[Rfam]
RNA: Ribosomal protein L10 leader
RNA sequence: UAGUAUAAUAUUCGCUUGCCGAAGACAGCGGGUGCAAAAUGCGUAAAACCCAAGUGGUUGCCUGCCGAGGAAGAUCAGCUUUUUAAAAGUUUACGGUCUUUUUCGUCUUUGUGCGGAAAAGACCUUUUCUUUAUUCUC
Numbered sequence: 001u002a003g004u005a006u007a008a009u010a011u012u013c014g015c016u017u018g019c020c021g022a023a024g025a026c027a028g029c030g031g032g033u034g035c036a037a038a039a040u041g042c043g044u045a046a047a048a049c050c051c052a053a054g055u056g057g058u059u060g061c062c063u064g065c066c067g068a069g070g071a072a073g074a075u076c077a078g079c080u081u082u083u084u085a086a087a088a089g090u091u092u093a094c095g096g097u098c099u100u101u102u103u104c105g106u107c108u109u110u111g112u113g114c115g116g117a118a119a120a121g122a123c124c125u126u127u128u129c130u131u132u133a134u135u136c137u138c
Base pairs, nucleotide, nucleotide: 028065029064030063031062032061033060034042035041036040096123097122098121099120100119101118102117103116104115105114